The family of this 171-nucleotide RNA sequence from Rhizobium metallidurans is "Manganese Mn2+ riboswitch aptamer (yybP-ykoY)". NCBI's taxonomy places the organism under Bacteria, Pseudomonadati, Hyphomicrobiales, Rhizobiaceae, Rhizobium.

[Rfam]
RNA sequence: UCAUCGCGCAUCGGGGAGUAGCUACCGCUUACCCAGCGGGAACGUGUCAACAUGCUCGUGCGCAAUGCACGUGGCACGUUCAGCCGAAAACGUCGGCUCGGCAAGACCGUGGCGAAGUCUGCCACCUGGACAGGGCAGUCGACGCCCGGUUUCCAUCGUCCGCGAGGUUUC
Numbered sequence: 001u002c003a004u005c006g007c008g009c010a011u012c013g014g015g016g017a018g019u020a021g022c023u024a025c026c027g028c029u030u031a032c033c034c035a036g037c038g039g040g041a042a043c044g045u046g047u048c049a050a051c052a053u054g055c056u057c058g059u060g061c062g063c064a065a066u067g068c069a070c071g072u073g074g075c076a077c078g079u080u081c082a083g084c085c086g087a088a089a090a091c092g093u094c095g096g097c098u099c100g101g102c103a104a105g106a107c108c109g110u111g112g113c114g115a116a117g118u119c120u121g122c123c124a125c126c127u128g129g130a131c132a133g134g135g136c137a138g139u140c141g142a143c144g145c146c147c148g149g150u151u152u153c154c155a156u157c158g159u160c161c162g163c164g165a166g167g168u169u170u171c
Stems, first nucleotide, its partner, number of pairs: 026038003040081010057071005088170003